RNA sequence: CGUUGUCUCCGACAACAGCCAAUGCUUCAGCGCAAGCGGAACUGUGCUAGCGAUUUGAGAGAAGCGCCUUCGGGUGAUCGCAAGCCAAUAUCAUAGGGAAAGAAGCGCGGCCUGAGACUGAUGCCUUCGGGUGGCCGCAGCCAAAAUCGUCGUAAUCUGAGAGACGAAGCCUUCGGGCGAUAACACC
Dot-bracket structure: .((((((...)))))).......[[[[[.....................((((((.....]]]]](((....)))))))))...................[..[[.((((((.....]]..](((....)))))))))........((((.[[.[[[......)))).(((....)))]]].]]...
Background: Shown here is a 187-nucleotide RNA sequence from Escherichia coli, a member of the family "STAXI RNA". It scores 77 bits against the family's covariance model. The organism belongs to Escherichia coli O83:H1, within Bacteria. The family has 43 seed sequences and 130 matches in Rfam 15.1. The base pairs follow the family's consensus structure, which is taken from published work.